[Rfam]
RNA sequence: GUCCUGAUAUACUGUUUGAGUAUCCUGAAACGGGCUUUUCAAGAUCAGUAUAUCAAUAAACUUAAAUAAUAGGAGUGCAUAGUGGCCCGUAUUGCAGGCAUUAACAUUCCUGAU
Numbered sequence: 001g002u003c004c005u006g007a008u009a010u011a012c013u014g015u016u017u018g019a020g021u022a023u024c025c026u027g028a029a030a031c032g033g034g035c036u037u038u039u040c041a042a043g044a045u046c047a048g049u050a051u052a053u054c055a056a057u058a059a060a061c062u063u064a065a066a067u068a069a070u071a072g073g074a075g076u077g078c079a080u081a082g083u084g085g086c087c088c089g090u091a092u093u094g095c096a097g098g099c100a101u102u103a104a105c106a107u108u109c110c111u112g113a114u
Stems, first nucleotide, its partner, number of pairs: 005055009024098003031089004039113003